A member of the RNA family "Bacterial RNase P class B" from Weissella soli, 369 nucleotides long. The family's RNA type in Rfam is ribozyme. Ribonuclease P (RNase P) is a ubiquitous endoribonuclease, found in archaea, bacteria and eukarya as well as chloroplasts and mitochondria. The source organism's lineage runs through Bacteria, Bacillota, Lactobacillales, Lactobacillaceae and Weissella.
[Rfam]
RNA sequence: GUUAGUGGGUAAUUGCGUGCGGUCUAUGCCGCAUGAGGAAAGUCCAUGCUCACACAAACUGCGAUGUUUGUAGUGUUCGUGCCAGGUGAAAAAAUAAGCCUGGGUAGCCAGCAAUGGUUAACGGCCAACGAAACCGCCUAAGGGAAACUAUGGCUGAUUAGUUGUUAAGGUGCCACAGUGACGAGCUUUCAAAGAAAUGCGAAAGGUGGAACGCGGUAAACCCCACGAGUGGGCAACCCAAACGAUGGUAGGGGCGCUUGACCUAGCAAAUUGAAGUGAUGGUCGGGGGAGCAGCAAUGCUCGAGAUAGAUGAUUACCACCGAUAGGUAUCUGCCAGAUAUCUAUCGGUACAAAACAUGGCUUACAGCU
Numbered sequence: 001g002u003u004a005g006u007g008g009g010u011a012a013u014u015g016c017g018u019g020c021g022g023u024c025u026a027u028g029c030c031g032c033a034u035g036a037g038g039a040a041a042g043u044c045c046a047u048g049c050u051c052a053c054a055c056a057a058a059c060u061g062c063g064a065u066g067u068u069u070g071u072a073g074u075g076u077u078c079g080u081g082c083c084a085g086g087u088g089a090a091a092a093a094a095u096a097a098g099c100c101u102g103g104g105u106a107g108c109c110a111g112c113a114a115u116g117g118u119u120a121a122c123g124g125c126c127a128a129c130g131a132a133a134c135c136g137c138c139u140a141a142g143g144g145a146a147a148c149u150a151u152g153g154c155u156g157a158u159u160a161g162u163u164g165u166u167a168a169g170g171u172g173c174c175a176c177a178g179u180g181a182c183g184a185g186c187u188u189u190c191a192a193a194g195a196a197a198u199g200c201g202a203a204a205g206g207u208g209g210a211a212c213g214c215g216g217u218a219a220a221c222c223c224c225a226c227g228a229g230u231g232g233g234c235a236a237c238c239c240a241a242a243c244g245a246u247g248g249u250a251g252g253g254g255c256g257c258u259u260g261a262c263c264u265a266g267c268a269a270a271u272u273g274a275a276g277u278g279a280u281g282g283u284c285g286g287g288g289g290a291g292c293a294g295c296a297a298u299g300c301u302c303g304a305g306a307u308a309g310a311u312g313a314u315u316a317c318c319a320c321c322g323a324u325a326g327g328u329a330u331c332u333g334c335c336a337g338a339u340a341u342c343u344a345u346c347g348g349u350a351c352a353a354a355a356c357a358u359g360g361c362u363u364a365c366a367g368c369u
Stems, first nucleotide, its partner, number of pairs: 004369003007365001008318007016035006040363003044360005049233005054071006077228005082103006104122001105120006123223002126164004136154003142149002170221002172217003186205005193198001237253003257287007289302005320348012
Dot-bracket structure: ...(((((((((((.((((((........))))))....[[[.[[[[[(((((((((((......)))))).....(((((((((((..........))))))(((((((....)))))).)((.((((......(((...((....))..)))......)))).....(((((...........(((((..(....)..))))).........)))..))))))))))))))...(((...........)))...(((((((.................))))))).(((((....))))).........))))))).((((((((((((.....)))))))))))).......]]]]]]]].).)))